[Rfam]
RNA sequence: CCGGGGGCUCACGCCCCCCGGCUACAACAUUCCGCCCCUCCGGGGCU
Numbered sequence: 001c002c003g004g005g006g007g008c009u010c011a012c013g014c015c016c017c018c019c020g021g022c023u024a025c026a027a028c029a030u031u032c033c034g035c036c037c038c039u040c041c042g043g044g045g046c047u
Stems, first nucleotide, its partner, number of pairs: 001021005006015003034046005